[Rfam]
RNA sequence: AGAGAGCCAUACAGGAAAGGGGGUAACGGACCGUCCUGGCCCCGAGUCAUGCGUGGGCGACCGUGAGGGCGCCGGCGAAGCGUUGACAGGGGAACGCGCAGGCGAGGUAUUGAGCCGCGAAAUCAGGCUGAACCAGUGUGCCGACGCCGUCUGAGUAGGCGGAAGGCGAAACCGGAGGGGGCAUUAGCGUGAGUCCUCAUCUGGACGGGCGCGGUCGGAGACCC
Dot-bracket structure: ...........(((((..((...[.[[...)).))))).((((..(((((((((.((((.((....)).)))).)))...)).)))).))))..................((.((((((.............((..((((((..((((.........))))...)))....((((.((((((......]].])))))).)).)))))))))))))).)......

The family of this 224-nucleotide sequence is "Group II catalytic intron D1-D4-6". Rfam 15.1 lists 1,617 matches to the family in 661 species. Its family is annotated with Group II intron splicing in the Gene Ontology.